RNA sequence: CCUAGCUCUCACGAGCCAAGCUUCUUUAUGGCGUACCUUCGGUACU
Dot-bracket structure: (.(.((((....)))).).)............(((((...))))).
Numbered sequence: 001c002c003u004a005g006c007u008c009u010c011a012c013g014a015g016c017c018a019a020g021c022u023u024c025u026u027u028a029u030g031g032c033g034u035a036c037c038u039u040c041g042g043u044a045c046u
Stems, first nucleotide, its partner, number of pairs: 001020001003018001005016004033045005
The family of this 46-nucleotide RNA from Lentisphaera araneosa is "Acido-Lenti-1 RNA". The family's consensus secondary structure is taken from published work.